This 96-nucleotide sequence from Klebsiella indica belongs to the Rfam family "Tryptophan operon leader". For this family Rfam cites "Attenuation in amino acid biosynthetic operons" (Kolter and Yanofsky, Annu Rev Genet, 1982). The organism belongs to Klebsiella, within Bacteria. About the family: At least 6 amino acid operons are known to be regulated by attenuation. Gene Ontology terms of the family: tryptophan biosynthetic process and transcriptional attenuation by ribosome. It scores 79 bits against the family's covariance model. The base pairs follow the family's consensus structure, which is taken from published work.
[Rfam]
RNA sequence: CACGGCUGGUGGCGCGCGUCCUGUUAUCGGGCAGCGUAAUCGCGUUUUGCACUCAGCAUACAGAUACCCGGCCCGCCAAUGAGCGGGCUUUUUAUU
Numbered sequence: 001c002a003c004g005g006c007u008g009g010u011g012g013c014g015c016g017c018g019u020c021c022u023g024u025u026a027u028c029g030g031g032c033a034g035c036g037u038a039a040u041c042g043c044g045u046u047u048u049g050c051a052c053u054c055a056g057c058a059u060a061c062a063g064a065u066a067c068c069c070g071g072c073c074c075g076c077c078a079a080u081g082a083g084c085g086g087g088c089u090u091u092u093u094a095u096u
Stems, first nucleotide, its partner, number of pairs: 009043004014037004020031004070089007077081001